The record is an 83-nucleotide RNA sequence from Oryza sativa, which matches "MIR814 microRNA precursor family" in Rfam.
The base pairs follow the family's consensus structure, which was predicted with RNAalifold.
Rfam links the family to the GO terms miRNA-mediated post-transcriptional gene silencing and RISC complex.
NCBI's taxonomy places the organism under Eukaryota, Embryophyta, Euphyllophyta, Oryzinae, Oryza.
Rfam's curators put it in the seed alignment.
[Rfam]
RNA sequence: ACCAGAUGUGACACUUCAUAGUACAACGAAUCUGGACAGGAAGCAUGUCCGGAUUCGUUAUACUAUAAAGUGUCCUAUUCGGU
Numbered sequence: 001a002c003c004a005g006a007u008g009u010g011a012c013a014c015u016u017c018a019u020a021g022u023a024c025a026a027c028g029a030a031u032c033u034g035g036a037c038a039g040g041a042a043g044c045a046u047g048u049c050c051g052g053a054u055u056c057g058u059u060a061u062a063c064u065a066u067a068a069a070g071u072g073u074c075c076u077a078u079u080c081g082g083u
Stems, first nucleotide, its partner, number of pairs: 001083003005079004010074007018066006025059014